[Rfam]
RNA sequence: UUUUCAGUGUAGGUAUGUCCCAUGCAAUGUUUGGGAUAUACUUAUACUUUAC
Numbered sequence: 001u002u003u004u005c006a007g008u009g010u011a012g013g014u015a016u017g018u019c020c021c022a023u024g025c026a027a028u029g030u031u032u033g034g035g036a037u038a039u040a041c042u043u044a045u046a047c048u049u050u051a052c
Stems, first nucleotide, its partner, number of pairs: 006048007014040003018036004022031001

This 52-nucleotide RNA from Callithrix jacchus belongs to the Rfam family "mir-1302 microRNA precursor family".